[Rfam]
RNA sequence: CGAACCAGCGCGGGAGAGUCCGGUCGCCGAGCCGGACGCCGAAGGAGCAACUCCUCCCCGGAACCUCUCAGGCACCCAGGACCGCGCCGGUGAG
Numbered sequence: 001c002g003a004a005c006c007a008g009c010g011c012g013g014g015a016g017a018g019u020c021c022g023g024u025c026g027c028c029g030a031g032c033c034g035g036a037c038g039c040c041g042a043a044g045g046a047g048c049a050a051c052u053c054c055u056c057c058c059c060g061g062a063a064c065c066u067c068u069c070a071g072g073c074a075c076c077c078a079g080g081a082c083c084g085c086g087c088c089g090g091u092g093a094g
Stems, first nucleotide, its partner, number of pairs: 006089001008087006019036004038073003041069002045067003051061002

Shown here is a 94-nucleotide RNA sequence from Pseudonocardia broussonetiae, a member of the family "Glycine riboswitch aptamer". The match comes from Rfam's covariance-model search (62 bits). Rfam 15.1 lists 9,425 matches to the family in 5,228 species.